[Rfam]
RNA sequence: AGCCUUCUCUUGUGCCGCCUUCUGGCGAGCCGCUGCGUCAUCGGCAGGGUAAGCGAAUUGUACGCUAUAGUAGAGAUCGGCCUGCUCUU
Numbered sequence: 001a002g003c004c005u006u007c008u009c010u011u012g013u014g015c016c017g018c019c020u021u022c023u024g025g026c027g028a029g030c031c032g033c034u035g036c037g038u039c040a041u042c043g044g045c046a047g048g049g050u051a052a053g054c055g056a057a058u059u060g061u062a063c064g065c066u067a068u069a070g071u072a073g074a075g076a077u078c079g080g081c082c083u084g085c086u087c088u089u
Base pairs, nucleotide, nucleotide: 002082004080005079053065054064055063
RNA: Rhizobiales sRNA Atu_Ti3